[Rfam]
Annotation: A member of the RNA family "mir-2237 microRNA precursor family" from Pristionchus pacificus, 91 nucleotides long. The sequence is in the family's curated seed alignment. The base pairs follow the family's consensus structure, which was predicted with RNAalifold.

RNA sequence: GGCAUCUGUGCCAGAUACCCGUUGGUUUUCGGACAGUUCGUGAUUGACAGCGAACCGUUCGGCGCUAUCGGGUGCCUGGCUAGGAUGGCCA
Numbered sequence: 001g002g003c004a005u006c007u008g009u010g011c012c013a014g015a016u017a018c019c020c021g022u023u024g025g026u027u028u029u030c031g032g033a034c035a036g037u038u039c040g041u042g043a044u045u046g047a048c049a050g051c052g053a054a055c056c057g058u059u060c061g062g063c064g065c066u067a068u069c070g071g072g073u074g075c076c077u078g079g080c081u082a083g084g085a086u087g088g089c090c091a
Stems, first nucleotide, its partner, number of pairs: 001090003004086003010080005017073005026064001028062002031060004036055002039052003